[Rfam]
Rfam assigns this 89-nucleotide RNA sequence from Brassica carinata to the family "mir-160 microRNA precursor family".
The family's consensus secondary structure was predicted with PFOLD.
Lineage of the source: Eukaryota > Streptophytina > Magnoliopsida > Pentapetalae > Brassica.
Rfam links the family to the GO terms miRNA-mediated post-transcriptional gene silencing and RISC complex.

RNA sequence: UCGUGCCUGGCUCCCUGUAUGCCACAAGUGGAUAUUGAUUUUUGGUUGAAAAAAUCGGCUGCUGGUGGCGUACAAGGAGCCAAGCAUGA
Numbered sequence: 001u002c003g004u005g006c007c008u009g010g011c012u013c014c015c016u017g018u019a020u021g022c023c024a025c026a027a028g029u030g031g032a033u034a035u036u037g038a039u040u041u042u043u044g045g046u047u048g049a050a051a052a053a054a055u056c057g058g059c060u061g062c063u064g065g066u067g068g069c070g071u072a073c074a075a076g077g078a079g080c081c082a083a084g085c086a087u088g089a
Stems, first nucleotide, its partner, number of pairs: 001089006008082007016074009027063003